A member of the RNA family "MIR1120/MIR1122 microRNA precursor family" from Triticum aestivum, 87 nucleotides long. The base pairs follow the family's consensus structure, which was predicted with RNAalifold. Lineage of the source: Eukaryota > Tracheophyta > commelinids > Triticeae > Triticum. The match comes from Rfam's covariance-model search (87 bits). A reference for the family is Yao et al. (2007), "Cloning and characterization of microRNAs from wheat (Triticum aestivum L.)", Genome Biol. The family has 6 seed sequences and 44,765 matches in Rfam 15.1.

[Rfam]
RNA sequence: GUACUCUCUCUGUAAACUAAUAUAAGAUCGUUUAGAUAACUACUUUAGUGAUUUAAACGAUCUUAUAUUAGUUUACAGAGGGAGUAG
Numbered sequence: 001g002u003a004c005u006c007u008c009u010c011u012g013u014a015a016a017c018u019a020a021u022a023u024a025a026g027a028u029c030g031u032u033u034a035g036a037u038a039a040c041u042a043c044u045u046u047a048g049u050g051a052u053u054u055a056a057a058c059g060a061u062c063u064u065a066u067a068u069u070a071g072u073u074u075a076c077a078g079a080g081g082g083a084g085u086a087g
Base pairs, nucleotide, nucleotide: 003085004084005083007081008080009079010078011077013075014074015073016072017071019069020068021067022066023065024064025063026062027061028060029059030058031057032056033055034054035053036052037051039049040048041047